[Rfam]
RNA sequence: GACACGUUCCUUAGAUCCACCUCUGGGGGGGCUCUGCUCUGUGAGCAGGGCCGCCCGGCAGCUUUGUGGCUGUACAGUUGGAGGUGCUUGAGUCAUUGGCGUGUGAGAACAGUCUACCUGCCCCCCCCGCCCACCUGCGGCACUGGCAACCUGGUCAUCUGACGGGGGUCUCCCAGUGCCGCCAGCCUGGGGGGGCGGACAAG
Dot-bracket structure: .(((((((.(((((...((((((((.(((.(....................).))).((((((....)))))).....)))))))).))))).....))))))).............(((((.(.((((.......((((((((((.(.(((...........)))....).)))))))))).....)))).)))))).....
Numbered sequence: 001g002a003c004a005c006g007u008u009c010c011u012u013a014g015a016u017c018c019a020c021c022u023c024u025g026g027g028g029g030g031g032c033u034c035u036g037c038u039c040u041g042u043g044a045g046c047a048g049g050g051c052c053g054c055c056c057g058g059c060a061g062c063u064u065u066g067u068g069g070c071u072g073u074a075c076a077g078u079u080g081g082a083g084g085u086g087c088u089u090g091a092g093u094c095a096u097u098g099g100c101g102u103g104u105g106a107g108a109a110c111a112g113u114c115u116a117c118c119u120g121c122c123c124c125c126c127c128c129g130c131c132c133a134c135c136u137g138c139g140g141c142a143c144u145g146g147c148a149a150c151c152u153g154g155u156c157a158u159c160u161g162a163c164g165g166g167g168g169u170c171u172c173c174c175a176g177u178g179c180c181g182c183c184a185g186c187c188u189g190g191g192g193g194g195g196c197g198g199a200c201a202a203g
Stems, first nucleotide, its partner, number of pairs: 002104007010092005018086008027056003031052001058073006118198005124193001126191004137182010148171001150166003
The family of this 203-nucleotide sequence from Menidia menidia is "Small nucleolar RNA SNORA53". Gene Ontology terms of the family: nucleolus and RNA processing.